Shown here is a 145-nucleotide RNA sequence from Peribacillus cavernae, a member of the family "c-di-AMP riboswitch aptamer (ydaO/yuaA leader)".
From the family's description: This family represents a conserved RNA structure found upstream of the ydaO and yuaA genes in Bacillus subtilis and related genes in other bacteria.
Taxonomically the source falls in Peribacillus (Bacteria, Bacillota, Caryophanales, Bacillaceae).

RNA sequence: GCGAUUUUUUCGCUUAAUCUUAAUAAAAGAACGGGGAAACCAGUUUUGUGGAGUGAUAUUCCACUGGGGUGAAUUCAGUUGAAGGGGCUAAGUGUUCCAGGUCCUAACCCGACAGCUAACCUCGUCAGCGUCUUAAAGGGAACAG
Numbered sequence: 001g002c003g004a005u006u007u008u009u010u011c012g013c014u015u016a017a018u019c020u021u022a023a024u025a026a027a028a029g030a031a032c033g034g035g036g037a038a039a040c041c042a043g044u045u046u047u048g049u050g051g052a053g054u055g056a057u058a059u060u061c062c063a064c065u066g067g068g069g070u071g072a073a074u075u076c077a078g079u080u081g082a083a084g085g086g087g088c089u090a091a092g093u094g095u096u097c098c099a100g101g102u103c104c105u106a107a108c109c110c111g112a113c114a115g116c117u118a119a120c121c122u123c124g125u126c127a128g129c130g131u132c133u134u135a136a137a138g139g140g141a142a143c144a145g
Stems, first nucleotide, its partner, number of pairs: 011130004018030003031125006041066004067110003075082002085104004